[Rfam]
RNA: DUF3085 RNA
RNA sequence: CGGUAGCUGGACGCACCGGGCUCGCCAGAGCCAAACCCAGCCAUCAGUCCUUCCUGGACCUCAACCCACCGCGGG
Numbered sequence: 001c002g003g004u005a006g007c008u009g010g011a012c013g014c015a016c017c018g019g020g021c022u023c024g025c026c027a028g029a030g031c032c033a034a035a036c037c038c039a040g041c042c043a044u045c046a047g048u049c050c051u052u053c054c055u056g057g058a059c060c061u062c063a064a065c066c067c068a069c070c071g072c073g074g075g
Stems, first nucleotide, its partner, number of pairs: 001018004006041005019032004047059004